A member of the RNA family "c-di-GMP-I riboswitch aptamer" from Acetivibrio straminisolvens, 91 nucleotides long.

[Rfam]
RNA sequence: UUUCGAUAAAGGCAAACUCAAUGAAAAUUGAGGACGCAAAGCUACAGGUCUUCGGUUUGGGACUCCAAACCAUGACGGCUGAGUUACCAAA
Numbered sequence: 001u002u003u004c005g006a007u008a009a010a011g012g013c014a015a016a017c018u019c020a021a022u023g024a025a026a027a028u029u030g031a032g033g034a035c036g037c038a039a040a041g042c043u044a045c046a047g048g049u050c051u052u053c054g055g056u057u058u059g060g061g062a063c064u065c066c067a068a069a070c071c072a073u074g075a076c077g078g079c080u081g082a083g084u085u086a087c088c089a090a091a
Base pairs, nucleotide, nucleotide: 012037013036017032018031019030020029021028022027040085041084042083043082045081046080047079048076049075050074055070056069057068058067059066060065
On this family, see Weinberg et al., Nucleic Acids Res 2007: "Identification of 22 candidate structured RNAs in bacteria using the CMfinder comparative genomics pipeline". Taxonomically the source falls in Acetivibrio straminisolvens (Bacteria, Bacillota, Clostridia, Acetivibrionales). The family is grouped with related families in Rfam's "c-di-GMP_I riboswitch clan".